[Rfam]
The family of this 74-nucleotide sequence from Orthoflavivirus nilense is "General Flavivirus exoribonuclease-resistant RNA element". It is annotated as a cis-regulatory element. NCBI's taxonomy places the organism under Viruses, Orthornavirae, Kitrinoviricota, Flaviviridae, Orthoflavivirus nilense. From the family's description: The exoribonuclease-resistant RNA elements (xrRNA) are described throughout all groups of flaviviruses. Usually, each virus harbors two xrRNAs, xrRNA1 and xrRNA2, in the beginning of the 3' UTR. The formation of these stem-loops, especially xrRNA1, is vital to ensure resistance against XRN1 activity. The Y-shaped stem-loop is also termed SL II and SL IV, respectively. In order to function as xrRNA, the sequence downstream is needed as well, since the upper loop region forms a pseudoknot (PK) with the single-stranded region directly downstream to its respective hairpin.

RNA sequence: AGUUGUCAGACCACACGCAAGUGUGCUACUCUGCGAAGAGUACUGUCUGCGUUAGAGCCCCAGGAGGACUGGGA
Dot-bracket structure: ....(((((((((((......))))...(((......)))....))))).))......(((((.....))))).
Numbered sequence: 001a002g003u004u005g006u007c008a009g010a011c012c013a014c015a016c017g018c019a020a021g022u023g024u025g026c027u028a029c030u031c032u033g034c035g036a037a038g039a040g041u042a043c044u045g046u047c048u049g050c051g052u053u054a055g056a057g058c059c060c061c062a063g064g065a066g067g068a069c070u071g072g073g074a
Stems, first nucleotide, its partner, number of pairs: 005052002007049005012025004029040003059073005